[Rfam]
Shown here is a 115-nucleotide RNA sequence from Salix viminalis, a member of the family "Small nucleolar RNA Z278". Rfam 15.1 lists 1,130 matches to the family in 214 species. For this family Rfam cites "The high diversity of snoRNAs in plants: identification and comparative study of 120 snoRNA genes from Oryza sativa" (Chen et al., Nucleic Acids Res, 2003). Rfam links the family to the GO terms nucleolus and RNA processing. The family's consensus secondary structure was predicted with PFOLD. By type it is a C/D-box small nucleolar RNA. A search with the family's covariance model found it, with a score of 53 bits.
RNA sequence: GCCUGUGAUGAUACAAUCCAACUUGUUUAGGUGUAGUGGAGCCGAGACCCUGUUUCAGGGAGAACCUACUUGGUGUAAGCUACAUUAUAAUGAUAUUAAUGGAUUCAACUGAGGC
Number, nucleotide and partner (000 for none) at each position: 001g115002c114003c113004u000005g000006u000007g000008a000009u000010g000011a000012u000013a000014c000015a000016a000017u000018c000019c000020a000021a000022c000023u000024u000025g000026u000027u000028u000029a000030g000031g000032u000033g000034u000035a000036g000037u000038g000039g000040a000041g000042c000043c000044g000045a000046g000047a000048c060049c059050c058051u057052g056053u000054u000055u000056c052057a051058g050059g049060g048061a000062g000063a000064a000065c000066c000067u000068a000069c000070u000071u000072g000073g000074u000075g000076u000077a000078a000079g000080c000081u000082a000083c000084a000085u000086u000087a000088u000089a000090a000091u000092g000093a000094u000095a000096u000097u000098a000099a000100u000101g000102g000103a000104u000105u000106c000107a000108a000109c000110u000111g000112a000113g003114g002115c001